Rfam assigns this 140-nucleotide sequence from Leptolyngbya sp. Cla-17 to the family "c-di-AMP riboswitch aptamer (ydaO/yuaA leader)". The pairing is the family consensus, mapped onto this sequence.
[Rfam]
RNA sequence: AGACUCAUCUUGCUGAAAUUAAAACACUGUCUGGAACGGAGGAACCAGUGUAUUCGGGGCGAAUUUUACCAUUUGGGUAAGAGAGACACCUUCCAGUCUUAGCCCGUCAGCUAACUCCGUCGGCAAUGGAAGGAGCGCCC
Dot-bracket structure: ..........((((....((............)).((((((....(.........)(((.....((((.........))))..((((........))))...))).........)))))).))))...............